[Rfam]
RNA sequence: GGAUGUGAGGGCGAUCUGGCUGCGACAUCUGUCACCCCAUUGAUCGCCAGGGUUGAUUCGGCUGAUCUGGCUGGCUAGGCGGGUGUCCCCUUCCUCCCUCACCGCUCCAUGUGCGUCCCUCCCGAAGCUGCGCGCUUGGUCGAAGAGGACGACCUUCCCCGAUAGAGGUGUACCGUUCAUCGGUCAAGGGUAUACGGUAGCUGCGCUCCCCUGCUAGAACCUCCAAACAAGCUCAAGCCAUUGCUGGGUAGCAGUUCCUAAUGAGCCUCCCUUGGCACGUGCAGGGCAGCCAUGCAAGGAUGCAUUUGACGAUAAAAUGUAUAUGU
Numbered sequence: 001g002g003a004u005g006u007g008a009g010g011g012c013g014a015u016c017u018g019g020c021u022g023c024g025a026c027a028u029c030u031g032u033c034a035c036c037c038c039a040u041u042g043a044u045c046g047c048c049a050g051g052g053u054u055g056a057u058u059c060g061g062c063u064g065a066u067c068u069g070g071c072u073g074g075c076u077a078g079g080c081g082g083g084u085g086u087c088c089c090c091u092u093c094c095u096c097c098c099u100c101a102c103c104g105c106u107c108c109a110u111g112u113g114c115g116u117c118c119c120u121c122c123c124g125a126a127g128c129u130g131c132g133c134g135c136u137u138g139g140u141c142g143a144a145g146a147g148g149a150c151g152a153c154c155u156u157c158c159c160c161g162a163u164a165g166a167g168g169u170g171u172a173c174c175g176u177u178c179a180u181c182g183g184u185c186a187a188g189g190g191u192a193u194a195c196g197g198u199a200g201c202u203g204c205g206c207u208c209c210c211c212u213g214c215u216a217g218a219a220c221c222u223c224c225a226a227a228c229a230a231g232c233u234c235a236a237g238c239c240a241u242u243g244c245u246g247g248g249u250a251g252c253a254g255u256u257c258c259u260a261a262u263g264a265g266c267c268u269c270c271c272u273u274g275g276c277a278c279g280u281g282c283a284g285g286g287c288a289g290c291c292a293u294g295c296a297a298g299g300a301u302g303c304a305u306u307u308g309a310c311g312a313u314a315a316a317a318u319g320u321a322u323a324u325g326u
Stems, first nucleotide, its partner, number of pairs: 001108003005102007013093002018090002024087010035074002037070003042067004046062003117170001118168004122139004127135002140162003147158003200295002206289002209286006223275002229273003
RNA: 7SK RNA